[Rfam]
RNA sequence: GUCAACCACCCAUCACUUCUCUUCGGGUAAGUGAGGGCUUGUAAAAGCCUAGUUGGACUGAGUUCUUAACGGAACUACGUUAGAGGUAAGAGUUAAAGACCUACCAGGGAAUGCGUAGCUAGUUCCCUGCUCUAGAACUUAAAAGUUAAACAGGCUUAAGGGUUAAACCAGUGCUUUUAAGAUAGUUACCGACCUCUAACAUUGUCGUUCGCGUAGC
Number, nucleotide and partner (000 for none) at each position: 001g000002u000003c055004a054005a053006c052007c000008a050009c000010c037011c036012a000013u034014c033015a000016c000017u000018u029019c000020u000021c000022u000023u000024c000025g000026g000027g000028u000029a018030a000031g000032u000033g014034a013035g000036g011037g010038c047039u046040u045041g000042u000043a000044a000045a040046a039047g038048c000049c000050u008051a000052g006053u005054u004055g003056g206057a205058c204059u000060g202061a076062g075063u074064u073065c072066u000067u000068a000069a000070c000071g000072g065073a064074a063075c062076u061077a000078c000079g200080u199081u198082a197083g196084a195085g194086g193087u192088a000089a000090g000091a000092g000093u000094u000095a000096a000097a000098g000099a000100c000101c135102u134103a000104c000105c129106a128107g127108g126109g125110a124111a123112u122113g000114c000115g000116u000117a000118g217119c216120u215121a000122g112123u111124u110125c109126c108127c107128u106129g105130c000131u000132c000133u000134a102135g101136a000137a000138c181139u180140u179141a178142a177143a176144a175145g174146u173147u000148a000149a000150a172151c171152a000153g169154g168155c000156u166157u165158a164159a000160g000161g000162g000163u000164u158165a157166a156167a000168c154169c153170a000171g151172u150173g146174c145175u144176u143177u142178u141179a140180a139181g138182a000183u000184a000185g000186u000187u000188a000189c000190c000191g000192a087193c086194c085195u084196c083197u082198a081199a080200c079201a000202u060203u000204g058205u057206c056207g000208u000209u000210c000211g000212c000213g000214u000215a120216g119217c118
RNA: HNH endonuclease-associated RNA and ORF (HEARO) RNA